[Rfam]
RNA: mir-156 microRNA precursor family
RNA sequence: GUGACAGAAGAGAGUGAGCACACAUGGUGUUUUCUUGCAUAAACAGAUUCCCACAUGCUUGAAGCUAUGGGUGCUCACUCUCUCUCUGUCAC
Numbered sequence: 001g002u003g004a005c006a007g008a009a010g011a012g013a014g015u016g017a018g019c020a021c022a023c024a025u026g027g028u029g030u031u032u033u034c035u036u037g038c039a040u041a042a043a044c045a046g047a048u049u050c051c052c053a054c055a056u057g058c059u060u061g062a063a064g065c066u067a068u069g070g071g072u073g074c075u076c077a078c079u080c081u082c083u084c085u086c087u088g089u090c091a092c
Base pairs, nucleotide, nucleotide: 001092002091003090004089005088006087007086008085010082011081012080013079014078015077016076017075018074019073020072021071023069024068025067026066027065